[Rfam]
RNA sequence: UGCCCAUUUUGGCACUAGCACUAUUUUUGCUUUUGUUCUCGUACUUUGAGCAAUCAUGUGUACGUGCCAAUAUCGGACG
Numbered sequence: 001u002g003c004c005c006a007u008u009u010u011g012g013c014a015c016u017a018g019c020a021c022u023a024u025u026u027u028u029g030c031u032u033u034u035g036u037u038c039u040c041g042u043a044c045u046u047u048g049a050g051c052a053a054u055c056a057u058g059u060g061u062a063c064g065u066g067c068c069a070a071u072a073u074c075g076g077a078c079g
Stems, first nucleotide, its partner, number of pairs: 003076002006073002009070007016062001018061004023057002027053006

Record summary
The record is a 79-nucleotide sequence from Hippoglossus hippoglossus, which matches "mir-96 microRNA precursor family" in Rfam. Rfam's curators put it in the seed alignment. Gene Ontology terms of the family: miRNA-mediated post-transcriptional gene silencing and RISC complex.